[Rfam]
RNA: FMN riboswitch aptamer (RFN element)
RNA sequence: AUCGAUCUUCAGGGCAGGGCGAAAUUCCCGACCGGCGGUAAAGUCCGCGAGCGCAAGCUGAACCGGUGUGAUUCCGGUACCGACAGUACAGUCUGGAUGGAAGAAGAUUUUU
Numbered sequence: 001a002u003c004g005a006u007c008u009u010c011a012g013g014g015c016a017g018g019g020c021g022a023a024a025u026u027c028c029c030g031a032c033c034g035g036c037g038g039u040a041a042a043g044u045c046c047g048c049g050a051g052c053g054c055a056a057g058c059u060g061a062a063c064c065g066g067u068g069u070g071a072u073u074c075c076g077g078u079a080c081c082g083a084c085a086g087u088a089c090a091g092u093c094u095g096g097a098u099g100g101a102a103g104a105a106g107a108u109u110u111u112u
Base pairs, nucleotide, nucleotide: 004109005108006107007106008105009104010103017029018028019027031092032091033082034081035048036047037046038045043080044079051058052057062078063077064076065075066074084095085094086093